[Rfam]
RNA sequence: CGUGUGGUACUCUGUUGAUUGAAAUAAUUCAUCAAGCUGAGCAGCGACACGGACCAAUAGAGGU
Numbered sequence: 001c002g003u004g005u006g007g008u009a010c011u012c013u014g015u016u017g018a019u020u021g022a023a024a025u026a027a028u029u030c031a032u033c034a035a036g037c038u039g040a041g042c043a044g045c046g047a048c049a050c051g052g053a054c055c056a057a058u059a060g061a062g063g064u
Stems, first nucleotide, its partner, number of pairs: 001051005007045002011040002014037003
Background
A member of the RNA family "L31-Gammaproteobacteria ribosomal protein leader" from Psychromonas hadalis, 64 nucleotides long. NCBI's taxonomy places the organism under Bacteria, Gammaproteobacteria, Alteromonadales, Psychromonadaceae, Psychromonas hadalis. The family is grouped with related families in Rfam's "Ribosomal Protein L31 Leader clan".